[Rfam]
RNA sequence: AAGGAGGAGAAGGAGGAGGAGGAGGAGGAGAAGGACUAGAAGGUCCUUGGCCUUCUACUCCUUCUCCUCCUCCUCCUCCUCCUCC
Numbered sequence: 001a002a003g004g005a006g007g008a009g010a011a012g013g014a015g016g017a018g019g020a021g022g023a024g025g026a027g028g029a030g031a032a033g034g035a036c037u038a039g040a041a042g043g044u045c046c047u048u049g050g051c052c053u054u055c056u057a058c059u060c061c062u063u064c065u066c067c068u069c070c071u072c073c074u075c076c077u078c079c080u081c082c083u084c085c
Stems, first nucleotide, its partner, number of pairs: 004081006013075002016072001018070010029059001037057007045050001
RNA: mir-877 microRNA precursor family
Organism: Hordeum vulgare